[Rfam]
Rfam assigns this 63-nucleotide sequence from Pedobacter hiemivivus to the family "DUF805 RNA". Taxonomically the source falls in Pedobacter (Bacteria, Bacteroidota, Sphingobacteriia, Sphingobacteriales). The family's RNA type in Rfam is cis-regulatory element.
RNA sequence: CAAAAUUGGAGCAGCAACCAUUAAAAACGGGCGAAACCGAAAAGCCAGACGAGUAGGAAACGA
Numbered sequence: 001c002a003a004a005a006u007u008g009g010a011g012c013a014g015c016a017a018c019c020a021u022u023a024a025a026a027a028c029g030g031g032c033g034a035a036a037c038c039g040a041a042a043a044g045c046c047a048g049a050c051g052a053g054u055a056g057g058a059a060a061c062g063a
Stems, first nucleotide, its partner, number of pairs: 007020003030046003037057002